Record summary
The family of this 62-nucleotide RNA sequence from Aotus nancymaae is "U7 small nuclear RNA". Lineage of the source: Eukaryota > Craniata > Euteleostomi > Boreoeutheria > Aotus.
[Rfam]
RNA sequence: AAGUGCUGCAGUUCUUUUAGAGUUGUCUAGCAGGUCUUCUGGGUUUUUAACCAGAAACCCUC
Numbered sequence: 001a002a003g004u005g006c007u008g009c010a011g012u013u014c015u016u017u018u019a020g021a022g023u024u025g026u027c028u029a030g031c032a033g034g035u036c037u038u039c040u041g042g043g044u045u046u047u048u049a050a051c052c053a054g055a056a057a058c059c060c061u062c
Stems, first nucleotide, its partner, number of pairs: 033059003037056006